[Rfam]
The family of this 60-nucleotide RNA from Gemmobacter megaterium is "L2-Alphaproteobacteria ribosomal protein leader". The family's RNA type in Rfam is cis-regulatory leader. The organism belongs to Gemmobacter, within Bacteria. The family's consensus secondary structure is taken from published work.
RNA sequence: GGGGAUCUACGGAGCCCUGUAACCCGGGUCGAAUGACCCGCAGCAGACGGAAGACAGAAA
Numbered sequence: 001g002g003g004g005a006u007c008u009a010c011g012g013a014g015c016c017c018u019g020u021a022a023c024c025c026g027g028g029u030c031g032a033a034u035g036a037c038c039c040g041c042a043g044c045a046g047a048c049g050g051a052a053g054a055c056a057g058a059a060a
Stems, first nucleotide, its partner, number of pairs: 001018004006014001008012001026039005